[Rfam]
RNA sequence: UUCUUAUUGAGAGAGACGGAGGGACUGGCCCUACGAUGUCUCGGCAGCGGACUUAGAACGAAGUGCUGUGCCAAAUCCAGCAGGGAUUACCCUGAGAAAUAAGAA
Numbered sequence: 001u002u003c004u005u006a007u008u009g010a011g012a013g014a015g016a017c018g019g020a021g022g023g024a025c026u027g028g029c030c031c032u033a034c035g036a037u038g039u040c041u042c043g044g045c046a047g048c049g050g051a052c053u054u055a056g057a058a059c060g061a062a063g064u065g066c067u068g069u070g071c072c073a074a075a076u077c078c079a080g081c082a083g084g085g086a087u088u089a090c091c092c093u094g095a096g097a098a099a100u101a102a103g104a105a
Stems, first nucleotide, its partner, number of pairs: 001105008013042005021031003025080004043072004048068002051064004076097001081094005
SAM riboswitch aptamer (S box leader): a 105-nucleotide sequence from Priestia koreensis. About the family: The SAM riboswitch is found upstream of a number of genes which code for proteins involved in methionine or cysteine biosynthesis in Gram-positive bacteria. Its family is annotated with regulation of gene expression in the Gene Ontology.